Source information: Rfam assigns this 335-nucleotide RNA from Xenorhabdus cabanillasii to the family "RNase E 5' UTR element".
RNA sequence: CACAGUUUACUAAACUAUGAAUGGCAGAUUGAAAUUGUUUGUUAUCUGUUUGUUUGAACAAAAACGCAGCAAUGGCGUAAGACGUAAUGUUCAAUCAAACAAUUUAUGGGCUGUGGGUUGCAACUUACUGGACUGGGUAGAACCUGUACUAAUUUAUUACAGUAUCCCCCAAUAAAGAGCGCUGCGUUUCUUCCAAUGAAAGAAAUGAAAUUCAGGCUUGCCGACAAUUAGGCACCUCUAUACAAACGAUAGCCGUGAGGCUGACGGUUUUGUAAAAGACACGAGGUCAUCGGUUACCAGUAGUGCUUCUCUUUUUACUCGCAGCUCUAUACUAA
Dot-bracket structure: (....(.((......)).)....)......................((((((....((((...(((..((....))......)))..))))....))))))......(((((((((((.......((((((...(((.(....(((((.........)))))..).)))........(((.(((..((((................))))..)))))).(((((.........(((((........((.(((((....))))).))................)))))..)))))..))))))..............)))))))))))........
Numbered sequence: 001c002a003c004a005g006u007u008u009a010c011u012a013a014a015c016u017a018u019g020a021a022u023g024g025c026a027g028a029u030u031g032a033a034a035u036u037g038u039u040u041g042u043u044a045u046c047u048g049u050u051u052g053u054u055u056g057a058a059c060a061a062a063a064a065c066g067c068a069g070c071a072a073u074g075g076c077g078u079a080a081g082a083c084g085u086a087a088u089g090u091u092c093a094a095u096c097a098a099a100c101a102a103u104u105u106a107u108g109g110g111c112u113g114u115g116g117g118u119u120g121c122a123a124c125u126u127a128c129u130g131g132a133c134u135g136g137g138u139a140g141a142a143c144c145u146g147u148a149c150u151a152a153u154u155u156a157u158u159a160c161a162g163u164a165u166c167c168c169c170c171a172a173u174a175a176a177g178a179g180c181g182c183u184g185c186g187u188u189u190c191u192u193c194c195a196a197u198g199a200a201a202g203a204a205a206u207g208a209a210a211u212u213c214a215g216g217c218u219u220g221c222c223g224a225c226a227a228u229u230a231g232g233c234a235c236c237u238c239u240a241u242a243c244a245a246a247c248g249a250u251a252g253c254c255g256u257g258a259g260g261c262u263g264a265c266g267g268u269u270u271u272g273u274a275a276a277a278g279a280c281a282c283g284a285g286g287u288c289a290u291c292g293g294u295u296a297c298c299a300g301u302a303g304u305g306c307u308u309c310u311c312u313u314u315u316u317a318c319u320c321g322c323a324g325c326u327c328u329a330u331a332c333u334a335a
Stems, first nucleotide, its partner, number of pairs: 001024001006019001008017002047101006057091004064085003069076002108327011126302006135169003139165001144162005178218003182215003187210004220294005234287005247266002250263005
A reference for the family is Diwa et al. (2000), "An evolutionarily conserved RNA stem-loop functions as a sensor that directs feedback regulation of RNase E gene expression", Genes Dev. Gene Ontology term of the family: regulation of gene expression. From the family's description: This family represents a conserved element found in the 5' UTR of RNase E mRNA. RNase E is a key regulatory enzyme in the pathway of mRNA degradation in E. coli that is able to auto-regulate the degradation of its own mRNA in response to changes in RNase E activity. This rne 5' UTR element acts as a sensor of cellular RNase E concentration enabling tight regulation of RNase E concentration and synthesis.